This 87-nucleotide RNA from Streptomyces silvensis belongs to the Rfam family "ZMP/ZTP riboswitch aptamer (pfl RNA motif)".

RNA sequence: UGCGCGGGCCGUGACUGGCGCUUGGGUGGAGGACCACCGGGGAGCGGCCUGACACAGAUGUCGAUGCCGUGCGCCUGGGCGACUGGU
Numbered sequence: 001u002g003c004g005c006g007g008g009c010c011g012u013g014a015c016u017g018g019c020g021c022u023u024g025g026g027u028g029g030a031g032g033a034c035c036a037c038c039g040g041g042g043a044g045c046g047g048c049c050u051g052a053c054a055c056a057g058a059u060g061u062c063g064a065u066g067c068c069g070u071g072c073g074c075c076u077g078g079g080c081g082a083c084u085g086g087u
Stems, first nucleotide, its partner, number of pairs: 005051008015041002017075005026037004065081004
The match comes from Rfam's covariance-model search (59 bits). The base pairs follow the family's consensus structure, which is taken from published work.